Rfam assigns this 113-nucleotide sequence from Sporomusa acidovorans to the family "Molybdenum/Tungsten riboswitch aptamer (Moco RNA motif)". Gene Ontology terms of the family: regulation of gene expression, molybdenum ion binding and tungstate binding.

RNA sequence: AAGACAGAUGAGUUCCAAGUUAUUUUUUCCAUACUGGAAAGGGUAACCGAAGGGUACGAAGAGUAAUUUUCGUGCCUGCCCGUAUUGCGCAAAGGAAGUCUGGUUAUCAGACU
Numbered sequence: 001a002a003g004a005c006a007g008a009u010g011a012g013u014u015c016c017a018a019g020u021u022a023u024u025u026u027u028u029c030c031a032u033a034c035u036g037g038a039a040a041g042g043g044u045a046a047c048c049g050a051a052g053g054g055u056a057c058g059a060a061g062a063g064u065a066a067u068u069u070u071c072g073u074g075c076c077u078g079c080c081c082g083u084a085u086u087g088c089g090c091a092a093a094g095g096a097a098g099u100c101u102g103g104u105u106a107u108c109a110g111a112c113u
Stems, first nucleotide, its partner, number of pairs: 003107001006104001011099001013097004019047013052077011078090002

It scores 45 bits against the family's covariance model. The organism belongs to Sporomusa acidovorans, within Bacteria.